[Rfam]
RNA: mir-199 microRNA precursor family
Organism: Eptatretus burgeri
RNA sequence: UCCUCGUCUGCCCAGUGUUCAGACUACCUGUUCAGGAGGUUGUUGUUGUACAGUAGUCUGCACAUUGGUUAGACUGGGCA
Numbered sequence: 001u002c003c004u005c006g007u008c009u010g011c012c013c014a015g016u017g018u019u020c021a022g023a024c025u026a027c028c029u030g031u032u033c034a035g036g037a038g039g040u041u042g043u044u045g046u047u048g049u050a051c052a053g054u055a056g057u058c059u060g061c062a063c064a065u066u067g068g069u070u071a072g073a074c075u076g077g078g079c080a
Base pairs, nucleotide, nucleotide: 012068013067014066015065016064017063018062020060021059022058023057024056025055026054028053029052030051031050033048034047
Dot-bracket structure: ...........(((((((.(((((((.((((.((............)).))))))))))).)))))))............